[Rfam]
RNA: RAGATH-18 RNA
Organism: Heyndrickxia coagulans
Nucleotides: 062
Stems, first nucleotide, its partner, number of pairs: 001060005009049005022044003030037002
Number, partner (000 for none) and nucleotide at each position: 001060c002059c003058u004057u005056u006000g007000g008000a009049g010048u011047g012046u013045u014000a015000u016000g017000a018000c019000a020000a021000a022044c023043g024042a025000a026000a027000g028000u029000a030037g031036c032000u033000u034000c035000g036031g037030c038000a039000a040000a041000a042024u043023c044022g045013g046012a047011c048010a049009c050000g051000a052000u053000g054000a055000a056005g057004a058003a059002g060001g061000a062000a